Rfam assigns this 97-nucleotide RNA sequence from Paenibacillus sp. J31TS4 to the family "Guanidine-I riboswitch aptamer".

RNA sequence: GGAUAGGUUUCCUAGGGUUCCGCGGCAGUGCCGGUCUGGUCCGAGAGGAAACGCGCGGCGACAGCCGCGUACACGGAGGGGAAAAAGCCCGGGAGGA
Dot-bracket structure: ......((((((..((...(((((((...))))..).)).))....))))))(((((((....))))))).(.[...(((.......))).)..]..